[Rfam]
RNA sequence: ACUUUGAUUAAUGUUAAUUUAAGAUCUCUACUGUAAUUACGGUUGAGUGCGGCCCCUCCCGGGGUCGCGGGCUGGAUCCCGAUCCAGCCAGUUUGAUGCCUCCCUGUUGACUUGAGCCGCCGUGAUCCGGCGGCUCUUUUUUU
Numbered sequence: 001a002c003u004u005u006g007a008u009u010a011a012u013g014u015u016a017a018u019u020u021a022a023g024a025u026c027u028c029u030a031c032u033g034u035a036a037u038u039a040c041g042g043u044u045g046a047g048u049g050c051g052g053c054c055c056c057u058c059c060c061g062g063g064g065u066c067g068c069g070g071g072c073u074g075g076a077u078c079c080c081g082a083u084c085c086a087g088c089c090a091g092u093u094u095g096a097u098g099c100c101u102c103c104c105u106g107u108u109g110a111c112u113u114g115a116g117c118c119g120c121c122g123u124g125a126u127c128c129g130g131c132g133g134c135u136c137u138u139u140u141u142u143u
Stems, first nucleotide, its partner, number of pairs: 001048004016037001020035002023032001025030001052065004070089006095108004114136009
RNA: Alphaproteobacterial sRNA BjrC1505